[Rfam]
RNA sequence: UGAUGAGAGAUACACCCGCUCACGGGAGACCGUGGACGGUGCCGGGCCGGGGCCUCCCCAGCUUCGUCCUGGUCGUGCCUCGCGCACACAUCCGGAGCCAUUGGUUCCGGUGAUCUCCUCACCGAUCGGA
Dot-bracket structure: ...((((.((.....(((.((((((....)))))).))).((((((.((((((.......)))))).)))))).((((.....))))....((((((((...)))))))).....))))))((....)).
The family of this 130-nucleotide RNA from Streptomyces acidiscabies is "Streptomyces RNA 5676". The literature on the family includes a 2011 paper in RNA Biol by Vockenhuber et al., "Deep sequencing-based identification of small non-coding RNAs in Streptomyces coelicolor". Rfam's curators write: Identified by deep sequencing of transcriptome at the end of exponential growth phase. Appears longer on northern blot than sequencing transcript. By type it is a small RNA. The source organism's lineage runs through Bacteria, Actinomycetota, Actinomycetes, Streptomycetaceae and Streptomyces.